A member of the RNA family "RT-16 RNA", 205 nucleotides long. Rfam's curators put it in the seed alignment. Rfam classes the family as a small RNA.

RNA sequence: UCUUAGCUGUUAAUCUAAAACUUAUCCCAAUAAGUCAAUGAAGAUUGAUAACUUGGACCACAUGCACGUUAAAGAUGGCUUAGUCUCUAAAUGAGCAAUAGUUAUAAAAUACAGCGAUGAUAAUUAGUAAUUAUGAUAAAACUCUGGGAAAGCUUUUGAAUGAAUAUUAAAGUUGCAGUGUAAUUUGGUUAAUGUGCUACUAACC
Dot-bracket structure: (((.((.(((((((((.........................))))))))).)).)))......(((((((((.........(((..(..........................(((((..((((.....((............................))....))))..)))))...)..)))...)))))))))........
Numbered sequence: 001u002c003u004u005a006g007c008u009g010u011u012a013a014u015c016u017a018a019a020a021c022u023u024a025u026c027c028c029a030a031u032a033a034g035u036c037a038a039u040g041a042a043g044a045u046u047g048a049u050a051a052c053u054u055g056g057a058c059c060a061c062a063u064g065c066a067c068g069u070u071a072a073a074g075a076u077g078g079c080u081u082a083g084u085c086u087c088u089a090a091a092u093g094a095g096c097a098a099u100a101g102u103u104a105u106a107a108a109a110u111a112c113a114g115c116g117a118u119g120a121u122a123a124u125u126a127g128u129a130a131u132u133a134u135g136a137u138a139a140a141a142c143u144c145u146g147g148g149a150a151a152g153c154u155u156u157u158g159a160a161u162g163a164a165u166a167u168u169a170a171a172g173u174u175g176c177a178g179u180g181u182a183a184u185u186u187g188g189u190u191a192a193u194g195u196g197c198u199a200c201u202a203a204c205c
Stems, first nucleotide, its partner, number of pairs: 001057003005053002008050009064197009082185003087180001114176005121169004130161002